[Rfam]
Rfam assigns this 83-nucleotide RNA sequence from Sulfitobacter sp. SK011 to the family "chrB-a RNA". The base pairs follow the family's consensus structure, which is taken from published work. Rfam classes the family as a cis-regulatory element.
RNA sequence: GCCAUGGGGAUCACCGCGAACGCCCCGUGAGGCGACAGCCAGAGGUUCGCAUGUUUCCAAAACUUUAAAGGAUGCAUGCCAUG
Numbered sequence: 001g002c003c004a005u006g007g008g009g010a011u012c013a014c015c016g017c018g019a020a021c022g023c024c025c026c027g028u029g030a031g032g033c034g035a036c037a038g039c040c041a042g043a044g045g046u047u048c049g050c051a052u053g054u055u056u057c058c059a060a061a062a063c064u065u066u067a068a069a070g071g072a073u074g075c076a077u078g079c080c081a082u083g
Stems, first nucleotide, its partner, number of pairs: 005027005049079006